[Rfam]
The family of this 119-nucleotide RNA from Penicillium freii is "U5 spliceosomal RNA".
Taxonomically the source falls in Penicillium (Eukaryota, Dikarya, leotiomyceta, Eurotiomycetes).

RNA sequence: GAGGAGUGGGACAAGUUAGUGCAGAACCCAUUUCUUGCCUUUUACCAGAGAUGGCCGUGAUUUGCCCACAAAACUCCUCUCAUAAAUCUUUGGAAACACAAUGACACAGCGGUCAUUAU
Numbered sequence: 001g002a003g004g005a006g007u008g009g010g011a012c013a014a015g016u017u018a019g020u021g022c023a024g025a026a027c028c029c030a031u032u033u034c035u036u037g038c039c040u041u042u043u044a045c046c047a048g049a050g051a052u053g054g055c056c057g058u059g060a061u062u063u064g065c066c067c068a069c070a071a072a073a074c075u076c077c078u079c080u081c082a083u084a085a086a087u088c089u090u091u092g093g094a095a096a097c098a099c100a101a102u103g104a105c106a107c108a109g110c111g112g113u114c115a116u117u118a119u
Base pairs, nucleotide, nucleotide: 003077004076005075006074009067010066012064013063014062015061016060017059018058028054029053030052031051032050033049034048035047094119100117101116102115103114104113
The base pairs follow the family's consensus structure, which is taken from published work. From the family's description: U5 RNA is a component of both types of known spliceosome. The precise function of this molecule is unknown, though it is known that the 5' loop is required for splice site selection and p220 binding, and that both the 3' stem-loop and the Sm site are important for Sm protein binding and cap methylation.